This 45-nucleotide RNA from Drosophila willistoni belongs to the Rfam family "Small nucleolar RNA R442".
The family's RNA type in Rfam is C/D-box small nucleolar RNA.
NCBI's taxonomy places the organism under Eukaryota, Opisthokonta, Protostomia, Drosophilinae, Sophophora.
The base pairs follow the family's consensus structure, which was predicted with WAR.
RNA sequence: AUCAAGCCUGUUGGGUGUGAUUUUGCUGUCAUAGUUACUCUGAGC
Numbered sequence: 001a002u003c004a005a006g007c008c009u010g011u012u013g014g015g016u017g018u019g020a021u022u023u024u025g026c027u028g029u030c031a032u033a034g035u036u037a038c039u040c041u042g043a044g045c
Stems, first nucleotide, its partner, number of pairs: 006016003017032005
Dot-bracket structure: .....(((.....)))(((((......))))).............